[Rfam]
RNA sequence: AUGUUGGAUGAUGAAAAAAAUCAGACGGAUUCCCAUUGAUGUCCAAAAGAUGAUAUCAGAAACCAGCUACUUCUGACACAU
Numbered sequence: 001a002u003g004u005u006g007g008a009u010g011a012u013g014a015a016a017a018a019a020a021u022c023a024g025a026c027g028g029a030u031u032c033c034c035a036u037u038g039a040u041g042u043c044c045a046a047a048a049g050a051u052g053a054u055a056u057c058a059g060a061a062a063c064c065a066g067c068u069a070c071u072u073c074u075g076a077c078a079c080a081u
Stems, first nucleotide, its partner, number of pairs: 001081004006077001